[Rfam]
RNA sequence: GCGGACACUUUGCAAGGGCUGCACCGCUCAACAAAGCAACCCAUGCCCACCACCCC
Number, nucleotide and partner (000 for none) at each position: 001g027002c026003g025004g024005a000006c000007a000008c000009u000010u000011u000012g000013c045014a000015a000016g042017g041018g040019c000020u038021g037022c036023a000024c004025c003026g002027c001028u000029c000030a000031a000032c000033a000034a000035a000036g022037c021038a020039a000040c018041c017042c016043a000044u000045g013046c000047c000048c000049a000050c000051c000052a000053c000054c000055c000056c000
RNA: RAGATH-5 RNA
Organism: Faecalibacterium prausnitzii